[Rfam]
RNA sequence: AGUACCUUUAACUCAGUCCCGUGAGGCUGGCAAGGUAGCGUGAAUAAGAAGAGAGUUUCUUGUAUGGAAUUCUGAUGGGUCAAGCAUACCGCUUGGCCUAUCGGUCUGAAUUCAACAAGAAGGCCUCUCAUCCGCAUGCAAACUCCUUGCGCCUGUCGCAAGGAGUUUUUUUGAC
Numbered sequence: 001a002g003u004a005c006c007u008u009u010a011a012c013u014c015a016g017u018c019c020c021g022u023g024a025g026g027c028u029g030g031c032a033a034g035g036u037a038g039c040g041u042g043a044a045u046a047a048g049a050a051g052a053g054a055g056u057u058u059c060u061u062g063u064a065u066g067g068a069a070u071u072c073u074g075a076u077g078g079g080u081c082a083a084g085c086a087u088a089c090c091g092c093u094u095g096g097c098c099u100a101u102c103g104g105u106c107u108g109a110a111u112u113c114a115a116c117a118a119g120a121a122g123g124c125c126u127c128u129c130a131u132c133c134g135c136a137u138g139c140a141a142a143c144u145c146c147u148u149g150c151g152c153c154u155g156u157c158g159c160a161a162g163g164a165g166u167u168u169u170u171u172u173g174a175c
Stems, first nucleotide, its partner, number of pairs: 003037006013030006072104014138170001140168012
The family of this 175-nucleotide sequence from Paenibacillus abyssi is "PyrR binding site". Rfam classes the family as a cis-regulatory element. From the family's description: This family represents the PyrR binding site and terminator structure. This RNA structure is found upstream of a variety of genes involved in pyrimidine biosynthesis and transport. The alignment also includes a portion of the antiterminator structure. The family has 41 seed sequences and 1,498 matches in Rfam 15.1.